[Rfam]
The record is a 103-nucleotide sequence from Alicycliphilus denitrificans, which matches "TPP riboswitch aptamer (THI element)" in Rfam. A search with the family's covariance model found it, with a score of 59 bits. The family's consensus secondary structure is taken from published work. Lineage of the source: Bacteria > Pseudomonadati > Pseudomonadota > Burkholderiales > Alicycliphilus denitrificans. Gene Ontology term of the family: thiamine pyrophosphate binding.
RNA sequence: CGGACGAAACAGGGGUGUCCCCGCCAUGUCGGCGGGCGACUGAGAAAUACCCUUCACACCCGAUCCAGGUCAUGCUGGCGUGGGGAGUUUCCAGCACCGGUGC
Numbered sequence: 001c002g003g004a005c006g007a008a009a010c011a012g013g014g015g016u017g018u019c020c021c022c023g024c025c026a027u028g029u030c031g032g033c034g035g036g037c038g039a040c041u042g043a044g045a046a047a048u049a050c051c052c053u054u055c056a057c058a059c060c061c062g063a064u065c066c067a068g069g070u071c072a073u074g075c076u077g078g079c080g081u082g083g084g085g086a087g088u089u090u091c092c093a094g095c096a097c098c099g100g101u102g103c
Base pairs, nucleotide, nucleotide: 006091007090008089009088010087011053012052013051014050016047017040018039019038021036059084060083061082062081065078066077067076068075